The family of this 130-nucleotide sequence from Crocuta crocuta is "U12 minor spliceosomal RNA". On this family, see Tarn and Steitz, Trends Biochem Sci 1997: "Pre-mRNA splicing: the discovery of a new spliceosome doubles the challenge". The family is grouped with related families in Rfam's "U2 clan".
RNA sequence: AUGCCUUAAAUAAUGAUUUGGGGUGACACCCGAAUGCUUACUGUUAAUGUGAAAUGAAAUUUUGAGCUGAUAGUUUGCCCUAAGGUCAUCUGCCCACUUUAUAGGAAGCCUGGGUGUGGUGAGCUGCCUG
Numbered sequence: 001a002u003g004c005c006u007u008a009a010a011u012a013a014u015g016a017u018u019u020g021g022g023g024u025g026a027c028a029c030c031c032g033a034a035u036g037c038u039u040a041c042u043g044u045u046a047a048u049g050u051g052a053a054a055u056g057a058a059a060u061u062u063u064g065a066g067c068u069g070a071u072a073g074u075u076u077g078c079c080c081u082a083a084g085g086u087c088a089u090c091u092g093c094c095c096a097c098u099u100u101a102u103a104g105g106a107a108g109c110c111u112g113g114g115u116g117u118g119g120u121g122a123g124c125u126g127c128c129u130g
Stems, first nucleotide, its partner, number of pairs: 016035007038052004067130001069128001071126008080114002083111004089105004
Dot-bracket structure: ...............(((((((......)))))))..((((.......))))..............(.(.((((((((.((.((((..((((.........))))..)))).))....)))))))).).)